[Rfam]
RNA sequence: GCAUAUGAUUAGUUUGUGCGUGGAUCGAACCCCAUCACUGCCGUGCAUCCAAUCCAUGGCUACGUAUAAUAUAGUGGUGUGUUAGAUUCACGCACAAACUCAUGAUGUGCCU
Numbered sequence: 001g002c003a004u005a006u007g008a009u010u011a012g013u014u015u016g017u018g019c020g021u022g023g024a025u026c027g028a029a030c031c032c033c034a035u036c037a038c039u040g041c042c043g044u045g046c047a048u049c050c051a052a053u054c055c056a057u058g059g060c061u062a063c064g065u066a067u068a069a070u071a072u073a074g075u076g077g078u079g080u081g082u083u084a085g086a087u088u089c090a091c092g093c094a095c096a097a098a099c100u101c102a103u104g105a106u107g108u109g110c111c112u
Stems, first nucleotide, its partner, number of pairs: 001110003005106002011100016028083003032077002043067001045065001
Rfam assigns this 112-nucleotide RNA from Turnera subulata to the family "MIR403 microRNA precursor family". For this family Rfam cites "High throughput approaches reveal splicing of primary microRNA transcripts and tissue specific expression of mature microRNAs in Vitis vinifera" (Mica et al., BMC Genomics, 2009).